This 90-nucleotide sequence belongs to the Rfam family "Small nucleolar SNORD12/SNORD106".
Pairs were carried over by alignment from the consensus structure, which was predicted with RNAalifold.
For this family Rfam cites "Identification of 13 novel human modification guide RNAs" (Vitali et al., Nucleic Acids Res, 2003).
Gene Ontology terms of the family: nucleolus and RNA processing.
RNA sequence: GCCUUUGCAGCUGAUGAUACAGCUUCUUUCCCCAUCAGAUCGACCCUGUUGAUCUCUACACUAUUGGCCAGUUUUGUCUGAUGCAUUGGC
Numbered sequence: 001g002c003c004u005u006u007g008c009a010g011c012u013g014a015u016g017a018u019a020c021a022g023c024u025u026c027u028u029u030c031c032c033c034a035u036c037a038g039a040u041c042g043a044c045c046c047u048g049u050u051g052a053u054c055u056c057u058a059c060a061c062u063a064u065u066g067g068c069c070a071g072u073u074u075u076g077u078c079u080g081a082u083g084c085a086u087u088g089g090c
Base pairs, nucleotide, nucleotide: 001090002089003088006085007084008083009082